[Rfam]
RNA: Clostridiales-2 RNA
Organism: Emergencia timonensis
RNA sequence: AAAAAGAGAGGUGUGCAGAGGGGAGUAUCCCCUCGCCGCCCUCAGGAGGGUGCUCAGCCUGCGUAGCAGGCGCCGAAGAGAAC
Numbered sequence: 001a002a003a004a005a006g007a008g009a010g011g012u013g014u015g016c017a018g019a020g021g022g023g024a025g026u027a028u029c030c031c032c033u034c035g036c037c038g039c040c041c042u043c044a045g046g047a048g049g050g051u052g053c054u055c056a057g058c059c060u061g062c063g064u065a066g067c068a069g070g071c072g073c074c075g076a077a078g079a080g081a082a083c
Stems, first nucleotide, its partner, number of pairs: 015036002018034006057071005